[Rfam]
RNA sequence: GUGUAUCAAUACCUUGGCUCUAGACUGCUUACUGAUAACAAAGCAACACUUGAAAGUCCAGUAACAGUCUACAGUCAUGGCUACUGAUGUCUG
Numbered sequence: 001g002u003g004u005a006u007c008a009a010u011a012c013c014u015u016g017g018c019u020c021u022a023g024a025c026u027g028c029u030u031a032c033u034g035a036u037a038a039c040a041a042a043g044c045a046a047c048a049c050u051u052g053a054a055a056g057u058c059c060a061g062u063a064a065c066a067g068u069c070u071a072c073a074g075u076c077a078u079g080g081c082u083a084c085u086g087a088u089g090u091c092u093g
Stems, first nucleotide, its partner, number of pairs: 012080002015077004023069005029064005
Dot-bracket structure: ...........((.((((....(((((.(((((..........................))))))))))....)))).)).............
A member of the RNA family "mir-132 microRNA precursor family" from Esox lucius, 93 nucleotides long. It scores 64 bits against the family's covariance model. The organism belongs to Esox, within Eukaryota. Its family is annotated with miRNA-mediated post-transcriptional gene silencing and RISC complex in the Gene Ontology. The literature on the family includes a 2005 paper in Genes Dev by Chen et al., "The developmental miRNA profiles of zebrafish as determined by small RNA cloning".